[Rfam]
RNA sequence: AAGACCUUUAAGUAAGUACAGAGAUGCUUGCAAGGUCGCAUGAUGAAUGCGUGUUGUUUUUGGAGACACGUUUGCCUCUUUGCGAUUUUGCAAAGAGGUUUUUUUU
Numbered sequence: 001a002a003g004a005c006c007u008u009u010a011a012g013u014a015a016g017u018a019c020a021g022a023g024a025u026g027c028u029u030g031c032a033a034g035g036u037c038g039c040a041u042g043a044u045g046a047a048u049g050c051g052u053g054u055u056g057u058u059u060u061u062g063g064a065g066a067c068a069c070g071u072u073u074g075c076c077u078c079u080u081u082g083c084g085a086u087u088u089u090g091c092a093a094a095g096a097g098g099u100u101u102u103u104u105u106u
Base pairs, nucleotide, nucleotide: 003037004036005035006034007033008032013030014029015028016027017026018025049071050070051069052068053067054066055065057063074099075098076097077096078095079094080093081092082091083090084089
RNA: PyrR binding site
Organism: Gracilibacillus ureilyticus